[Rfam]
RNA sequence: AAAACUUCAGUGAAGGGAAGAGUAAAAUUUACUAAGUAUCCAAAGCGAGUGGAGGGUGGUGAAAGCUCCAUGAGAAAAGUAAUAUUGAAAGACAUCCCAGAGAAACUUAUCUGAAAUAAAGUAGGAUGAGUCGGGUUACACCGUUAUAUGUAAUAAGAGAUGGCUUAGAGUUAUUUAACUUUAGUCAAGUAGAAUGGCACCGUGAAUAUAGCUUUCACUUCUAUC
Numbered sequence: 001a002a003a004a005c006u007u008c009a010g011u012g013a014a015g016g017g018a019a020g021a022g023u024a025a026a027a028u029u030u031a032c033u034a035a036g037u038a039u040c041c042a043a044a045g046c047g048a049g050u051g052g053a054g055g056g057u058g059g060u061g062a063a064a065g066c067u068c069c070a071u072g073a074g075a076a077a078a079g080u081a082a083u084a085u086u087g088a089a090a091g092a093c094a095u096c097c098c099a100g101a102g103a104a105a106c107u108u109a110u111c112u113g114a115a116a117u118a119a120a121g122u123a124g125g126a127u128g129a130g131u132c133g134g135g136u137u138a139c140a141c142c143g144u145u146a147u148a149u150g151u152a153a154u155a156a157g158a159g160a161u162g163g164c165u166u167a168g169a170g171u172u173a174u175u176u177a178a179c180u181u182u183a184g185u186c187a188a189g190u191a192g193a194a195u196g197g198c199a200c201c202g203u204g205a206a207u208a209u210a211g212c213u214u215u216c217a218c219u220u221c222u223a224u225c
Stems, first nucleotide, its partner, number of pairs: 007103002015098004025086002029082002039073002049071006106130007132143003163186001165184007191222004202218005
Overview: T-box leader: a 225-nucleotide RNA from Paraclostridium benzoelyticum. Lineage of the source: Bacteria > Bacillati > Clostridia > Peptostreptococcaceae > Paraclostridium. For this family Rfam cites "Interaction between the acceptor end of tRNA and the T box stimulates antitermination in the Bacillus subtilis tyrS gene: a new role for the discriminator base" (Grundy et al., J Bacteriol, 1994). By type it is a cis-regulatory leader. It scores 117 bits against the family's covariance model. The family has 48 seed sequences and 19,395 matches in Rfam 15.1. Gene Ontology term of the family: tRNA binding. About the family: Uncharged tRNA acts as the effector for transcription antitermination of genes in the T-box leader family.